RpsF leader: an 84-nucleotide RNA from Photobacterium ganghwense.
It is annotated as a cis-regulatory leader.
The literature on the family includes a 2014 paper in RNA by Fu et al., "Bacterial RNA motif in the 5' UTR of rpsF interacts with an S6:S18 complex".
A search with the family's covariance model found it, with a score of 43 bits.
The organism belongs to Photobacterium, within Bacteria.
About the family: Conserved and widely distributed to many bacterial species RNA structure. It precedes operon containing rpsF, which encodes ribosomal protein S6. The motif also precedes operon containing rpsR, which encodes ribosomal protein S18. The RNA was shown to interact with S6:S18 protein dimer in vitro.
The base pairs follow the family's consensus structure.
[Rfam]
Nucleotides: 084
Stems, first nucleotide, its partner, number of pairs: 017076007024057006033045002
Number, partner (000 for none) and nucleotide at each position: 001000u002000c003000g004000g005000u006000u007000c008000u009000u010000u011000u012000u013000u014000u015000u016000a017076g018075u019074u020073c021072c022071u023070u024057g025056c026055u027054u028053c029052u030000c031000a032000u033045g034044g035000a036000u037000g038000a039000c040000c041000g042000a043000g044034c045033c046000a047000a048000a049000c050000a051000g052029a053028g054027a055026a056025g057024c058000u059000g060000a061000u062000u063000a064000a065000u066000c067000c068000g069000u070023a071022a072021g073020g074019a075018g076017c077000a078000a079000c080000c081000c082000a083000u084000g